[Rfam]
RNA sequence: CAUAAACCUCGUUAGGUGAGGCUCCUAUAUGGAGAUAUGCUGCUGCCCAGAAACGUCCAAAGACGCCAAUGGGUCAACAGGAACCAUCGAAUUAAGGUGGUUUUUAACGUAGCUGGAUGAUUUUUUCAUCCUAUGCCAUAUAGUGCUAAAGCUCUACGAAGGAGGCUUUUU
Number, nucleotide and partner (000 for none) at each position: 001c000002a000003u000004a000005a167006a000007c165008c164009u163010c162011g157012u156013u095014a000015g153016g152017u151018g000019a000020g147021g146022c145023u000024c000025c143026u142027a141028u140029a139030u138031g137032g136033a000034g000035a000036u000037a000038u000039g113040c112041u111042g110043c109044u000045g074046c073047c072048c071049a070050g000051a000052a000053a000054c065055g064056u063057c062058c000059a000060a000061a000062g057063a056064c055065g054066c000067c000068a000069a000070u049071g048072g047073g046074u045075c000076a000077a000078c000079a000080g104081g103082a102083a101084c000085c000086a098087u097088c096089g000090a000091a000092u000093u000094a000095a013096g088097g087098u086099g000100g000101u083102u082103u081104u080105u000106a000107a000108c000109g043110u042111a041112g040113c039114u000115g131116g130117a129118u128119g127120a000121u000122u000123u000124u000125u000126u000127c119128a118129u117130c116131c115132u000133a000134u000135g000136c032137c031138a030139u029140a028141u027142a026143g025144u000145g022146c021147u020148a000149a000150a000151g017152c016153u015154c000155u000156a012157c011158g000159a000160a000161g000162g010163a009164g008165g007166c000167u005168u000169u000170u000171u000
The record is a 171-nucleotide RNA sequence from Sporosarcina limicola, which matches "M-box riboswitch aptamer (ykoK leader)" in Rfam. A search with the family's covariance model found it, with a score of 150 bits. M-box riboswitch, also know as ykoK leader is described as a metaloregulatory RNA that sense divalent metals and function as a genetic control element of genes related to divalent metal transport in bacteria. The organism belongs to Sporosarcina, within Bacteria.